[Rfam]
RNA sequence: CGAGUGAAACGUGGUCAAGGAACUCGGCAUAAUGAUCCCGUAACUUCGGAAGAAGGGAUGCCUUUUUUGGUAGUCAGACUUGCUCUGGCUGCUCGAGGAGGCCGCAGAGAAUCGGCCCAAGCGACUGUUUAGCAAAAACACAGGUGCGUGCCAAGCCGCGUAAGGCGCCGUAUACGCACUGACGCCUGCCCGGUGCCGGAAGGUUAAGGGGAGAGGUUAGGGGGUAACCCCGAAGCUUUGAGCCGAAGCCCCGGUAAACGGCGGCCGUAACUAUAACGGUCCUAAGGUAGCGAAAUUCCUUGUCGGGUAAGUUCCGACCUGCACGAAUGGCGUAACGACUUGGGCACUGUCUCGACCACGCGCUCG
Numbered sequence: 001c002g003a004g005u006g007a008a009a010c011g012u013g014g015u016c017a018a019g020g021a022a023c024u025c026g027g028c029a030u031a032a033u034g035a036u037c038c039c040g041u042a043a044c045u046u047c048g049g050a051a052g053a054a055g056g057g058a059u060g061c062c063u064u065u066u067u068u069g070g071u072a073g074u075c076a077g078a079c080u081u082g083c084u085c086u087g088g089c090u091g092c093u094c095g096a097g098g099a100g101g102c103c104g105c106a107g108a109g110a111a112u113c114g115g116c117c118c119a120a121g122c123g124a125c126u127g128u129u130u131a132g133c134a135a136a137a138a139c140a141c142a143g144g145u146g147c148g149u150g151c152c153a154a155g156c157c158g159c160g161u162a163a164g165g166c167g168c169c170g171u172a173u174a175c176g177c178a179c180u181g182a183c184g185c186c187u188g189c190c191c192g193g194u195g196c197c198g199g200a201a202g203g204u205u206a207a208g209g210g211g212a213g214a215g216g217u218u219a220g221g222g223g224g225u226a227a228c229c230c231c232g233a234a235g236c237u238u239u240g241a242g243c244c245g246a247a248g249c250c251c252c253g254g255u256a257a258a259c260g261g262c263g264g265c266c267g268u269a270a271c272u273a274u275a276a277c278g279g280u281c282c283u284a285a286g287g288u289a290g291c292g293a294a295a296u297u298c299c300u301u302g303u304c305g306g307g308u309a310a311g312u313u314c315c316g317a318c319c320u321g322c323a324c325g326a327a328u329g330g331c332g333u334a335a336c337g338a339c340u341u342g343g344g345c346a347c348u349g350u351c352u353c354g355a356c357c358a359c360g361c362g363c364u365c366g
Stems, first nucleotide, its partner, number of pairs: 001366004010360007018352003035059005044049001060102006073089006103107001115345007122337002126140003143180008151170001155166003183332004188262003193259002195255005202250003208244002213239005220231004263281006282286001292319001302318006